About this RNA:
This 62-nucleotide sequence from Sphingobacterium wenxiniae belongs to the Rfam family "Fluoride riboswitch aptamer (crcB RNA motif)". Rfam 15.1 lists 2,293 matches to the family in 1,982 species.
RNA sequence: UAUAUAAAUGGCAAUGAUGUCUGCCUUUAACCGCCCAAGAAGCUGAUGACGUCUACUUUAUU
Numbered sequence: 001u002a003u004a005u006a007a008a009u010g011g012c013a014a015u016g017a018u019g020u021c022u023g024c025c026u027u028u029a030a031c032c033g034c035c036c037a038a039g040a041a042g043c044u045g046a047u048g049a050c051g052u053c054u055a056c057u058u059u060a061u062u
Base pairs, nucleotide, nucleotide: 010025011024012023013022016053017052018051019050020049021048033043034042
Pairs were carried over by alignment from the consensus structure, which is taken from published work. The organism belongs to Sphingobacterium, within Bacteria. Rfam links the family to the GO terms positive regulation of gene expression and response to fluoride.